[Rfam]
RNA sequence: ACUCAGGCACGAUCCCUUGAGAAAAGGGAACCGACCUGAAGUUCAAUCCUGAGGGA
Numbered sequence: 001a002c003u004c005a006g007g008c009a010c011g012a013u014c015c016c017u018u019g020a021g022a023a024a025a026g027g028g029a030a031c032c033g034a035c036c037u038g039a040a041g042u043u044c045a046a047u048c049c050u051g052a053g054g055g056a
Stems, first nucleotide, its partner, number of pairs: 001042003004038004013029006
L31-Corynebacteriaceae ribosomal protein leader: a 56-nucleotide RNA from Corynebacterium imitans. The family is grouped with related families in Rfam's "Ribosomal Protein L31 Leader clan". It is one of the family's seed sequences.